[Rfam]
RNA sequence: GAGUGUUACAGCUCUUUUCGAAUUUGUCUAGCAUGCUUUCUGCUUUUUACUGGAAAGUGCCC
Numbered sequence: 001g002a003g004u005g006u007u008a009c010a011g012c013u014c015u016u017u018u019c020g021a022a023u024u025u026g027u028c029u030a031g032c033a034u035g036c037u038u039u040c041u042g043c044u045u046u047u048u049a050c051u052g053g054a055a056a057g058u059g060c061c062c
Stems, first nucleotide, its partner, number of pairs: 034059009044049001

About this RNA: U7 small nuclear RNA: a 62-nucleotide RNA from Pan troglodytes. NCBI's taxonomy places the organism under Eukaryota, Vertebrata, Dipnotetrapodomorpha, Catarrhini, Pan.